Overview: Shown here is an 83-nucleotide RNA sequence from Streptomyces sp. SID161, a member of the family "nrdJ RNA". Rfam classes the family as a small RNA. Lineage of the source: Bacteria > Actinomycetes > Kitasatosporales > Streptomycetaceae > Streptomyces.
[Rfam]
RNA sequence: ACUUGUCGGGGCGCGACUCGGAGCGCCCGCGACGCACUGCAAAGACACGUGCUCAAGGGAACAAAUGGGCACAUUGGGGCGUU
Numbered sequence: 001a002c003u004u005g006u007c008g009g010g011g012c013g014c015g016a017c018u019c020g021g022a023g024c025g026c027c028c029g030c031g032a033c034g035c036a037c038u039g040c041a042a043a044g045a046c047a048c049g050u051g052c053u054c055a056a057g058g059g060a061a062c063a064a065a066u067g068g069g070c071a072c073a074u075u076g077g078g079g080c081g082u083u
Stems, first nucleotide, its partner, number of pairs: 004034005009028006049072006056066001